[Rfam]
RNA sequence: UGACCGGGCCGAAGUCGUAAAACUACGGAGCCAAUGGGAGCGACCCCGUAAAAAGCGUA
Numbered sequence: 001u002g003a004c005c006g007g008g009c010c011g012a013a014g015u016c017g018u019a020a021a022a023c024u025a026c027g028g029a030g031c032c033a034a035u036g037g038g039a040g041c042g043a044c045c046c047c048g049u050a051a052a053a054a055g056c057g058u059a
Stems, first nucleotide, its partner, number of pairs: 001017004009028003013024001035048004
GP20-b RNA: a 59-nucleotide RNA sequence. The family's consensus secondary structure is taken from published work.